[Rfam]
Source information: The record is a 108-nucleotide sequence from gamma proteobacterium BDW918, which matches "TPP riboswitch aptamer (THI element)" in Rfam. The source organism's lineage runs through Bacteria, Pseudomonadati, Gammaproteobacteria, Cellvibrionales and Spongiibacteraceae.
RNA sequence: GCAAAACCUAAGGGGUGGCUACGGCCUGAGAUGCUAUUGGAACCAGCAAUGCAAACCCUUGAACCUGAUCCGGCUAAUACCGGCGUAGGAAUAGGUCAGUAAUCCUCU
Numbered sequence: 001g002c003a004a005a006a007c008c009u010a011a012g013g014g015g016u017g018g019c020u021a022c023g024g025c026c027u028g029a030g031a032u033g034c035u036a037u038u039g040g041a042a043c044c045a046g047c048a049a050u051g052c053a054a055a056c057c058c059u060u061g062a063a064c065c066u067g068a069u070c071c072g073g074c075u076a077a078u079a080c081c082g083g084c085g086u087a088g089g090a091a092u093a094g095g096u097c098a099g100u101a102a103u104c105c106u107c108u
Base pairs, nucleotide, nucleotide: 006096007095008094009093010092011059012058013057014056016053017026018025019024033052034051037048064089065088066087067086070083071082072081073080
Dot-bracket structure: .....(((((((((.((((....)))......((..(..........)..)))..))))....((((..((((......))))..))))..)))))............